[Rfam]
RNA sequence: AUAGCUAUAGUUCAAAAGGAAGAACAUUCGCAUGUGGAGCGAUAUAUCUGAGUUCGAUUCUCAGUAGUUAUC
Numbered sequence: 001a002u003a004g005c006u007a008u009a010g011u012u013c014a015a016a017a018g019g020a021a022g023a024a025c026a027u028u029c030g031c032a033u034g035u036g037g038a039g040c041g042a043u044a045u046a047u048c049u050g051a052g053u054u055c056g057a058u059u060c061u062c063a064g065u066a067g068u069u070a071u072c
Base pairs, nucleotide, nucleotide: 001071002070003069004068005067006066007065010025011024012023013022028042029041030040031039048064049063050062051061052060
The family of this 72-nucleotide RNA from Metschnikowia sp. JCM 33374 is "tRNA".
Transfer RNA (tRNA) molecules are approximately 80 nucleotides in length.
It is annotated as a transfer RNA.
The organism belongs to Metschnikowia, within Eukaryota.